[Rfam]
RNA sequence: UUCGCUUUUCCGACCGCGAGGAGAGCGGUUGGAGGUUCGAGCCGAGCGCAGCGAGACAACGUUGCGUUAGCAACGGCCCGCAGGGGAGGCGCAGCCGAAUCAUCCUCCCGGAUGCACCA
Numbered sequence: 001u002u003c004g005c006u007u008u009u010c011c012g013a014c015c016g017c018g019a020g021g022a023g024a025g026c027g028g029u030u031g032g033a034g035g036u037u038c039g040a041g042c043c044g045a046g047c048g049c050a051g052c053g054a055g056a057c058a059a060c061g062u063u064g065c066g067u068u069a070g071c072a073a074c075g076g077c078c079c080g081c082a083g084g085g086g087a088g089g090c091g092c093a094g095c096c097g098a099a100u101c102a103u104c105c106u107c108c109c110g111g112a113u114g115c116a117c118c119a
Stems, first nucleotide, its partner, number of pairs: 015110002018107004029085002036082001038080002043053002060075006

Shown here is a 119-nucleotide RNA sequence from Serratia rubidaea, a member of the family "RtT RNA". The family's consensus secondary structure is taken from published work. Rfam's curators write: This family represents a bacterial cis-regulatory element known as RtT RNA. The exact function of RtT is unknown although it is thought that it may be involved in changing the cellular response in relation to amino acid starvation. Rfam classes the family as a cis-regulatory element. A reference for the family is Bosl and Kersten (1991), "A novel RNA product of the tyrT operon of Escherichia coli", Nucleic Acids Res.